[Rfam]
RNA sequence: AAUAAUCUUCGGGGCGAGGUGUAAUUCCUCACCGGCAGUUAAAGUCUGCGAGCAAUGUUUAUUGCAGGAACCUGUGUGAUUCAGGUACCGACAGUAUAGUCUGGAUGAGAGAAGAGAGAA
Number, nucleotide and partner (000 for none) at each position: 001a000002a000003u118004a000005a000006u115007c114008u113009u112010c111011g000012g000013g000014g000015c000016g000017a029018g028019g027020u000021g000022u000023a000024a000025u000026u000027c019028c018029u017030c000031a100032c099033c090034g089035g049036c048037a047038g046039u000040u000041a000042a000043a000044g088045u087046c038047u037048g036049c035050g000051a000052g065053c064054a063055a000056u000057g000058u000059u000060u000061a000062u000063u054064g053065c052066a000067g000068g000069a000070a086071c085072c084073u083074g082075u000076g000077u000078g000079a000080u000081u000082c074083a073084g072085g071086u070087a045088c044089c034090g033091a000092c103093a102094g101095u000096a000097u000098a000099g032100u031101c094102u093103g092104g000105a000106u000107g000108a000109g000110a000111g010112a009113a008114g007115a006116g000117a000118g003119a000120a000

Description
Rfam assigns this 120-nucleotide RNA from Acholeplasma oculi to the family "FMN riboswitch aptamer (RFN element)". Its family is annotated with FMN binding in the Gene Ontology. A reference for the family is Gelfand et al. (1999), "A conserved RNA structure element involved in the regulation of bacterial riboflavin synthesis genes", Trends Genet. About the family: The RFN element is a highly conserved domain that is found frequently in the 5'-untranslated regions of prokaryotic mRNAs that encode for flavin mononucleotide (FMN) biosynthesis and transport proteins.